A member of the RNA family "T-box leader" from Sporanaerobacter acetigenes, 173 nucleotides long. Rfam's curators write: Uncharged tRNA acts as the effector for transcription antitermination of genes in the T-box leader family. The base pairs follow the family's consensus structure, which is taken from published work. Taxonomically the source falls in Sporanaerobacter acetigenes (Bacteria, Bacillati, Tissierellales, Sporanaerobacter). It scores 106 bits against the family's covariance model.
RNA sequence: AACUAUGCAAUGAAGAAGACAAUAGUCAAUAUAUAUUAUAUAAGCGAGCUAGGGAUGGUGAGAGCCUGGUAUAAUGAAUUGAUGAAGGGCACUUCUGAGCAUAUAUUAUGAGAGAAUACCUUUUAAAGGUAUUAAGUAGGGUGGAACCGCGGAAGUUACCUUUCGUCCCUAUA
Number, nucleotide and partner (000 for none) at each position: 001a000002a000003c000004u000005a000006u000007g100008c099009a000010a000011u000012g000013a000014a000015g095016a094017a093018g092019a000020c000021a000022a000023u000024a000025g083026u082027c081028a080029a079030u078031a000032u000033a000034u000035a000036u000037u073038a072039u071040a000041u000042a000043a000044g000045c000046g000047a000048g070049c069050u068051a067052g066053g065054g000055a000056u000057g000058g000059u000060g000061a000062g000063a000064g000065c053066c052067u051068g050069g049070u048071a039072u038073a037074a000075u000076g000077a000078a030079u029080u028081g027082a026083u025084g000085a000086a000087g000088g000089g000090c000091a000092c018093u017094u016095c015096u000097g000098a000099g008100c007101a000102u000103a000104u000105a000106u000107u000108a000109u000110g000111a000112g000113a000114g000115a133116a132117u131118a130119c129120c128121u127122u000123u000124u000125a000126a000127a121128g120129g119130u118131a117132u116133u115134a000135a000136g000137u000138a170139g169140g168141g167142u000143g000144g000145a000146a000147c000148c000149g166150c165151g164152g163153a162154a000155g000156u000157u000158a000159c000160c000161u000162u153163u152164c151165g150166u149167c141168c140169c139170u138171a000172u000173a000